[Rfam]
RNA sequence: UCCAUCGUGAGGUGGAAUCUGAAGGAAGCCGGAUGUGGGAACAGACUAACCACGGGCAAAUCUCUGGUCUGACGAACAGAAAUCACAUAUAAGGUUUCGCAUGAGGGUAAGAUUGCGUAACAAAUCGAAGCCCAAUAACUACACGGAAUUAUGCGGAAUAAAUGUGGCAGAUAGAUGGAGAGAAAGAAACGUGU
Numbered sequence: 001u002c003c004a005u006c007g008u009g010a011g012g013u014g015g016a017a018u019c020u021g022a023a024g025g026a027a028g029c030c031g032g033a034u035g036u037g038g039g040a041a042c043a044g045a046c047u048a049a050c051c052a053c054g055g056g057c058a059a060a061u062c063u064c065u066g067g068u069c070u071g072a073c074g075a076a077c078a079g080a081a082a083u084c085a086c087a088u089a090u091a092a093g094g095u096u097u098c099g100c101a102u103g104a105g106g107g108u109a110a111g112a113u114u115g116c117g118u119a120a121c122a123a124a125u126c127g128a129a130g131c132c133c134a135a136u137a138a139c140u141a142c143a144c145g146g147a148a149u150u151a152u153g154c155g156g157a158a159u160a161a162a163u164g165u166g167g168c169a170g171a172u173a174g175a176u177g178g179a180g181a182g183a184a185a186g187a188a189a190c191g192u193g194u
Base pairs, nucleotide, nucleotide: 001016002015003014004013005012006011051193052192053191057186061181062180063179064178065177066176067172068171069170070169071168083167084166085165086164087163088162094159095158096157098155099154100153101152102151103150104149105133106132107131108130111126112125113124114123
Source information:
The record is a 194-nucleotide sequence from Blautia sp. OF03-15BH, which matches "Group II catalytic intron D1-D4-3" in Rfam. The base pairs follow the family's consensus structure. The match comes from Rfam's covariance-model search (144 bits). The organism belongs to Blautia, within Bacteria.